[Rfam]
RNA sequence: UUUUUAAGCAUUGCACCCAGGGUCUGGUCUCCCAGACAUUGUACCUGGAGCUUUUUACACAGUAAUUAAAACAGUU
Numbered sequence: 001u002u003u004u005u006a007a008g009c010a011u012u013g014c015a016c017c018c019a020g021g022g023u024c025u026g027g028u029c030u031c032c033c034a035g036a037c038a039u040u041g042u043a044c045c046u047g048g049a050g051c052u053u054u055u056u057a058c059a060c061a062g063u064a065a066u067u068a069a070a071a072c073a074g075u076u
Stems, first nucleotide, its partner, number of pairs: 006053004017048004022037005